Notes
This 173-nucleotide RNA sequence from Actinoplanes sp. N902-109 belongs to the Rfam family "c-di-AMP riboswitch aptamer (ydaO/yuaA leader)". Rfam describes the family as follows. This family represents a conserved RNA structure found upstream of the ydaO and yuaA genes in Bacillus subtilis and related genes in other bacteria. It scores 63 bits against the family's covariance model. The organism belongs to Actinoplanes, within Bacteria.
[Rfam]
Nucleotides: 173
Base pairs, nucleotide, nucleotide: 003037004036005035039152040151041150042149043148048091049090092138093137094136100112101111102110103109115132116131117130118129
Number, partner (000 for none) and nucleotide at each position: 001000a002000a003037c004036c005035u006000g007000g008000a009000a010000a011000g012000a013000c014000c015000a016000a017000c018000a019000a020000a021000g022000g023000c024000a025000u026000c027000g028000g029000g030000g031000g032000g033000c034000a035005g036004g037003g038000a039152c040151g041150g042149g043148g044000g045000a046000c047000c048091c049090a050000u051000u052000u053000c054000c055000g056000g057000u058000c059000c060000g061000c062000c063000g064000c065000g066000a067000g068000c069000c070000g071000g072000c073000a074000a075000c076000g077000g078000c079000u080000u081000g082000c083000g084000c085000g086000a087000c088000c089000u090049u091048g092138g093137g094136g095000u096000g097000a098000a099000g100112u101111c102110g103109c104000c105000u106000c107000c108000c109103g110102c111101g112100a113000c114000c115132g116131g117130g118129c119000a120000u121000a122000c123000c124000u125000u126000c127000c128000c129118g130117c131116c132115c133000g134000a135000a136094c137093c138092c139000g140000a141000c142000a143000g144000c145000u146000a147000a148043c149042c150041u151040c152039g153000c154000a155000g156000g157000c158000g159000u160000g161000c162000c163000g164000g165000a166000g167000g168000g169000a170000a171000u172000u173000c